[Rfam]
RNA sequence: AAUUUAACAACUACAUACCCUCAUAUAAUAUUGGGAAUAUGGCCCAAAAGUCUCUACCCGGUUGCCGUAAACGACUGGACUAUGGGGAGUAAUCUGGCUACA
Numbered sequence: 001a002a003u004u005u006a007a008c009a010a011c012u013a014c015a016u017a018c019c020c021u022c023a024u025a026u027a028a029u030a031u032u033g034g035g036a037a038u039a040u041g042g043c044c045c046a047a048a049a050g051u052c053u054c055u056a057c058c059c060g061g062u063u064g065c066c067g068u069a070a071a072c073g074a075c076u077g078g079a080c081u082a083u084g085g086g087g088a089g090u091a092a093u094c095u096g097g098c099u100a101c102a
Stems, first nucleotide, its partner, number of pairs: 019087007029049001031047005058078007

Rfam assigns this 102-nucleotide RNA from Alkalibacillus haloalkaliphilus to the family "Purine riboswitch aptamer". Rfam describes the family as follows. Riboswitches are metabolite binding domains within certain messenger RNAs that serve as precision sensors for their corresponding targets. The family's consensus secondary structure is taken from published work. Lineage of the source: Bacteria > Bacillati > Bacillota > Bacillaceae > Alkalibacillus. A reference for the family is Mandal et al. (2003), "Riboswitches Control Fundamental Biochemical Pathways in Bacillus subtilis and Other Bacteria", Cell.